RNA: Guanidine-II riboswitch aptamer (mini-ykkC)
RNA sequence: ACAGGAGGACGACCUCCCUCGCGUUGAGCACCCCUUCAGGACGGCCUGA
Numbered sequence: 001a002c003a004g005g006a007g008g009a010c011g012a013c014c015u016c017c018c019u020c021g022c023g024u025u026g027a028g029c030a031c032c033c034c035u036u037c038a039g040g041a042c043g044g045c046c047u048g049a
Stems, first nucleotide, its partner, number of pairs: 003019002005016004036049005